[Rfam]
RNA sequence: GAAAAGUGAAUAUUAUGCCGUCGUAUAAUAUCGGGGAUAUGGCCCGAAAGUUUCUACCUAGCUACCGUAAAUGGCUUGACUACGAGGCGUUUGUAUAAAGAU
Number, nucleotide and partner (000 for none) at each position: 001g000002a000003a000004a000005a000006g000007u000008g000009a000010a000011u000012a000013u000014u000015a000016u000017g088018c087019c086020g000021u085022c084023g083024u082025a081026u000027a000028a000029u049030a000031u047032c046033g045034g044035g043036g000037a000038u000039a000040u000041g000042g000043c035044c034045c033046g032047a031048a000049a029050g000051u000052u000053u000054c000055u000056a000057c000058c078059u000060a076061g075062c074063u073064a072065c000066c000067g000068u000069a000070a000071a000072u064073g063074g062075c061076u060077u000078g058079a000080c000081u025082a024083c023084g022085a021086g019087g018088c017089g000090u000091u000092u000093g000094u000095a000096u000097a000098a000099a000100g000101a000102u000